[Rfam]
RNA sequence: UAGCAUUCUGAAGGUCGACUUACUAGGCUACGCGCGAGAACCUGGUUUCUCUCUAUCGCCUUGGGGAAAGUCCCCGGACACGUGGCAGAGAUUGUCCUGCUUAGUAGCAAUGAGUGGGUUUGCAAUAAUCAAAAGGCAAAGACGUUCAUAAGAACUGAGCUUGAUUUGAGCAAAUUCCUUUCGUCUCACAUGUAGUAACGGUCGCAGUGUGCACACAUCAACAGAACGGGGCUCACUCUCAGAAUGCC
Numbered sequence: 001u002a003g004c005a006u007u008c009u010g011a012a013g014g015u016c017g018a019c020u021u022a023c024u025a026g027g028c029u030a031c032g033c034g035c036g037a038g039a040a041c042c043u044g045g046u047u048u049c050u051c052u053c054u055a056u057c058g059c060c061u062u063g064g065g066g067a068a069a070g071u072c073c074c075c076g077g078a079c080a081c082g083u084g085g086c087a088g089a090g091a092u093u094g095u096c097c098u099g100c101u102u103a104g105u106a107g108c109a110a111u112g113a114g115u116g117g118g119u120u121u122g123c124a125a126u127a128a129u130c131a132a133a134a135g136g137c138a139a140a141g142a143c144g145u146u147c148a149u150a151a152g153a154a155c156u157g158a159g160c161u162u163g164a165u166u167u168g169a170g171c172a173a174a175u176u177c178c179u180u181u182c183g184u185c186u187c188a189c190a191u192g193u194a195g196u197a198a199c200g201g202u203c204g205c206a207g208u209g210u211g212c213a214c215a216c217a218u219c220a221a222c223a224g225a226a227c228g229g230g231g232c233u234c235a236c237u238c239u240c241a242g243a244a245u246g247c248c
Base pairs, nucleotide, nucleotide: 003247004246005245006244007243008242009241010240011239014205015204017202019200023063025061026060027059028058036051037050038049039048040047069233070232072231073230074229075228084096085095086094087093098109099108100107101106112178114176118175119174120173121172122171123170126168134162135161136160137159144155145154146153147152207218208217209216210215